Shown here is a 48-nucleotide RNA from Lachnospiraceae bacterium A2, a member of the family "DUF3800-XI RNA". It is annotated as a small RNA. The family's consensus secondary structure is taken from published work. Rfam's curators write: Actinobacteria, Firmicutes, Proteobacteria, Spirochaetes (1 example). Taxonomically the source falls in Lachnospiraceae (Bacteria, Bacillati, Bacillota, Clostridia).

[Rfam]
Nucleotides: 048
Stems, first nucleotide, its partner, number of pairs: 002026005007018004
Number, partner (000 for none) and nucleotide at each position: 001000c002026g003025g004024u005023c006022u007018g008017g009016g010015c011000g012000a013000g014000a015010g016009c017008u018007c019000u020000u021000u022006g023005g024004a025003c026002c027000a028000c029000c030000g031000u032000a033000g034000g035000c036000g037000g038000g039000a040000a041000g042000a043000a044000u045000u046000u047000c048000c